[Rfam]
RNA sequence: AUAUGUGAAUGAGAGAUUGUAAUAAAAUUGUCUCAUCAUUAUGAUAACGGAAGGAUAAAGAAAAGAUGGCAAGAUAUAUCGUUUCAGUCGUCAUUUUUUCAAUUGACGGUCUGAUUGUUACUUGUCCACAU
Numbered sequence: 001a002u003a004u005g006u007g008a009a010u011g012a013g014a015g016a017u018u019g020u021a022a023u024a025a026a027a028u029u030g031u032c033u034c035a036u037c038a039u040u041a042u043g044a045u046a047a048c049g050g051a052a053g054g055a056u057a058a059a060g061a062a063a064a065g066a067u068g069g070c071a072a073g074a075u076a077u078a079u080c081g082u083u084u085c086a087g088u089c090g091u092c093a094u095u096u097u098u099u100c101a102a103u104u105g106a107c108g109g110u111c112u113g114a115u116u117g118u119u120a121c122u123u124g125u126c127c128a129c130a131u
Base pairs, nucleotide, nucleotide: 006041008040009039010038011037013034014033015032016031017030068127069126071123072122073121078115079114080113081112087110088109089108090107091106092105093104095102096101
Overview:
The family of this 131-nucleotide RNA from Artemisia annua is "Small nucleolar RNA snoR111". The match comes from Rfam's covariance-model search (71 bits). It is annotated as an H/ACA-box small nucleolar RNA. On this family, see Marker et al., Curr Biol 2002: "Experimental RNomics: identification of 140 candidates for small non-messenger RNAs in the plant Arabidopsis thaliana".